[Rfam]
This 94-nucleotide RNA sequence from Olea europaea belongs to the Rfam family "Small nucleolar RNA snoR26".
The literature on the family includes a 2001 paper in RNA by Brown et al., "Multiple snoRNA gene clusters from Arabidopsis".
Taxonomically the source falls in Olea europaea (Eukaryota, Viridiplantae, Streptophytina, Gunneridae).
RNA sequence: UGAGCAUCAAUGAUGAGCUUUAUCUGAAUUGUUAUCCUUGCACUUUGAUUGUUAGUGAAGAAAACCCAUGGGGAUUCACAACUCUGAGAUGCUC
Numbered sequence: 001u002g003a004g005c006a007u008c009a010a011u012g013a014u015g016a017g018c019u020u021u022a023u024c025u026g027a028a029u030u031g032u033u034a035u036c037c038u039u040g041c042a043c044u045u046u047g048a049u050u051g052u053u054a055g056u057g058a059a060g061a062a063a064a065c066c067c068a069u070g071g072g073g074a075u076u077c078a079c080a081a082c083u084c085u086g087a088g089a090u091g092c093u094c
Stems, first nucleotide, its partner, number of pairs: 002094007